This 94-nucleotide RNA from Paenibacillus antri belongs to the Rfam family "c-di-GMP-I riboswitch aptamer". For this family Rfam cites "Identification of 22 candidate structured RNAs in bacteria using the CMfinder comparative genomics pipeline" (Weinberg et al., Nucleic Acids Res, 2007). The match comes from Rfam's covariance-model search (69 bits).
[Rfam]
RNA sequence: GUACGACAAUGGCAAACUUACUGAAAAGUGAGGACGCAAAGCUAAUAGGGGCUAAGGUGGAUACCUUCAUCCAUGACGCUCGCCAGCUGCCGAA
Numbered sequence: 001g002u003a004c005g006a007c008a009a010u011g012g013c014a015a016a017c018u019u020a021c022u023g024a025a026a027a028g029u030g031a032g033g034a035c036g037c038a039a040a041g042c043u044a045a046u047a048g049g050g051g052c053u054a055a056g057g058u059g060g061a062u063a064c065c066u067u068c069a070u071c072c073a074u075g076a077c078g079c080u081c082g083c084c085a086g087c088u089g090c091c092g093a094a
Base pairs, nucleotide, nucleotide: 012037013036017032018031019030020029021028022027040088041087042086043085048084049083050080051079052078057074058073059072060071061070062069